[Rfam]
RNA sequence: CUUCUUGCUGGUGGAGCAUCAUCAAGAUUCACAAUCUUUUGAGGACUUUGUGGGGGCUGGUGAUCCCUUGCUCCAAUUUCAAUGGCCUAUGAUCUGGGAAUCUUGAUGAUGCUGCAGCGGCAAUAAA
Numbered sequence: 001c002u003u004c005u006u007g008c009u010g011g012u013g014g015a016g017c018a019u020c021a022u023c024a025a026g027a028u029u030c031a032c033a034a035u036c037u038u039u040u041g042a043g044g045a046c047u048u049u050g051u052g053g054g055g056g057c058u059g060g061u062g063a064u065c066c067c068u069u070g071c072u073c074c075a076a077u078u079u080c081a082a083u084g085g086c087c088u089a090u091g092a093u094c095u096g097g098g099a100a101u102c103u104u105g106a107u108g109a110u111g112c113u114g115c116a117g118c119g120g121c122a123a124u125a126a127a
Base pairs, nucleotide, nucleotide: 010118012116013115015113016112017111018110019109020108021107022106023105024104025103026102027101028100029099030098032096033095
Background
The record is a 127-nucleotide sequence from Carpinus fangiana, which matches "mir-172 microRNA precursor family" in Rfam. The match comes from Rfam's covariance-model search (81 bits). Taxonomically the source falls in Carpinus (Eukaryota, Streptophyta, Euphyllophyta, fabids). Its family is annotated with RISC complex and miRNA-mediated post-transcriptional gene silencing in the Gene Ontology. The literature on the family includes a 2002 paper in Curr Biol by Park et al., "CARPEL FACTORY, a Dicer homolog, and HEN1, a novel protein, act in microRNA metabolism in Arabidopsis thaliana". From the family's description: mir-172 has been experimentally verified in Arabidopsis thaliana. This family is thought to target mRNAs coding for APETALA2-like transcription factors. The mature sequence is excised from the 3' arm of the hairpin.